[Rfam]
Nuclear RNase P: a 292-nucleotide RNA from Haplochromis burtoni. Rfam 15.1 lists 3,848 matches to the family in 1,862 species. Gene Ontology terms of the family: ribonuclease P activity, tRNA processing and ribonuclease P complex.
RNA sequence: GUGGGAGGAAGCUCAUUGAAGAGGUCACGUGCCGAGUGCUUGUCACUCCACCAAUCACCUCGGGGAAGGUCUGAGAGAAGAGCCAAUCGUUGCCCUUGCAGGGCAUCACCUGAAUCCGGGUGAGCGAGUGAACAGAAAGCAUGGGUCAAUGAGAGCAGGUGUAGCAGGAGAAGCCGGUUGGCAGGUGGAUGCAUCUCUCUGAUGACUUGGAAGCGCUCGCGGCUGGCGAUUGAGUGCGAUGAAUGAGUUGGGGCAGAUCUCCACAACCCAAUUCAGACUACUCUCCCCCCAC
Numbered sequence: 001g002u003g004g005g006a007g008g009a010a011g012c013u014c015a016u017u018g019a020a021g022a023g024g025u026c027a028c029g030u031g032c033c034g035a036g037u038g039c040u041u042g043u044c045a046c047u048c049c050a051c052c053a054a055u056c057a058c059c060u061c062g063g064g065g066a067a068g069g070u071c072u073g074a075g076a077g078a079a080g081a082g083c084c085a086a087u088c089g090u091u092g093c094c095c096u097u098g099c100a101g102g103g104c105a106u107c108a109c110c111u112g113a114a115u116c117c118g119g120g121u122g123a124g125c126g127a128g129u130g131a132a133c134a135g136a137a138a139g140c141a142u143g144g145g146u147c148a149a150u151g152a153g154a155g156c157a158g159g160u161g162u163a164g165c166a167g168g169a170g171a172a173g174c175c176g177g178u179u180g181g182c183a184g185g186u187g188g189a190u191g192c193a194u195c196u197c198u199c200u201g202a203u204g205a206c207u208u209g210g211a212a213g214c215g216c217u218c219g220c221g222g223c224u225g226g227c228g229a230u231u232g233a234g235u236g237c238g239a240u241g242a243a244u245g246a247g248u249u250g251g252g253g254c255a256g257a258u259c260u261c262c263a264c265a266a267c268c269c270a271a272u273u274c275a276g277a278c279u280a281c282u283c284u285c286c287c288c289c290c291a292c
Stems, first nucleotide, its partner, number of pairs: 001292004007286003012247006021061004034048005071276005081224004091105005106123006124220007144206001249263005
The family's RNA type in Rfam is ribozyme. Taxonomically the source falls in Haplochromis (Eukaryota, Eumetazoa, Chordata, Euteleosteomorpha).